[Rfam]
Overview:
The record is a 92-nucleotide sequence from Pan troglodytes, which matches "mir-4504 microRNA precursor family" in Rfam. The base pairs follow the family's consensus structure, which was predicted with RNAalifold. The organism belongs to Pan, within Eukaryota.
RNA sequence: CUAAGAUAAUGUCCUCCAGGUUCAUCUCUGUUGUCAUUUGUGGCAUGGACCAUUUGUGACAAUAGAGAUGAACAUGGAGGAUAUUAUCUUAA
Numbered sequence: 001c002u003a004a005g006a007u008a009a010u011g012u013c014c015u016c017c018a019g020g021u022u023c024a025u026c027u028c029u030g031u032u033g034u035c036a037u038u039u040g041u042g043g044c045a046u047g048g049a050c051c052a053u054u055u056g057u058g059a060c061a062a063u064a065g066a067g068a069u070g071a072a073c074a075u076g077g078a079g080g081a082u083a084u085u086a087u088c089u090u091a092a
Stems, first nucleotide, its partner, number of pairs: 002091017020073018040053004